The record is a 101-nucleotide RNA from Paenibacillus popilliae, which matches "Purine riboswitch aptamer" in Rfam. Taxonomically the source falls in Paenibacillus popilliae (Bacteria, Bacillota, Bacilli, Caryophanales). The base pairs follow the family's consensus structure, which is taken from published work. A reference for the family is Mandal and Breaker (2004), "Adenine riboswitches and gene activation by disruption of a transcription terminator", Nat Struct Mol Biol.

RNA sequence: UUAGCAGCGACUCUUUAUUCUCGUAUAUGUGCAGGAAUCGGCCUGCAUGUCUCUACCCGAUCACCGGAAAUGAUUGGACUACGGGAACCCAAUUCGACAGC
Dot-bracket structure: .................((((((((...(((((((......)))))))........(((((((.......)))))))..))))))))..............